[Rfam]
RNA: Purine riboswitch aptamer
Organism: Psychrobacillus psychrotolerans
RNA sequence: UUAAAAAGAAAAUAUAUACCUUGUAUAAAUUCAAGAAUAUGGCUUGAGAGUUUCUACCAGCUACCAAUAAAUAGCUGACUACAAGGAAUGGGAAAUUAAUG
Numbered sequence: 001u002u003a004a005a006a007a008g009a010a011a012a013u014a015u016a017u018a019c020c021u022u023g024u025a026u027a028a029a030u031u032c033a034a035g036a037a038u039a040u041g042g043c044u045u046g047a048g049a050g051u052u053u054c055u056a057c058c059a060g061c062u063a064c065c066a067a068u069a070a071a072u073a074g075c076u077g078a079c080u081a082c083a084a085g086g087a088a089u090g091g092g093a094a095a096u097u098a099a100u101g
Stems, first nucleotide, its partner, number of pairs: 019086007030048006058077006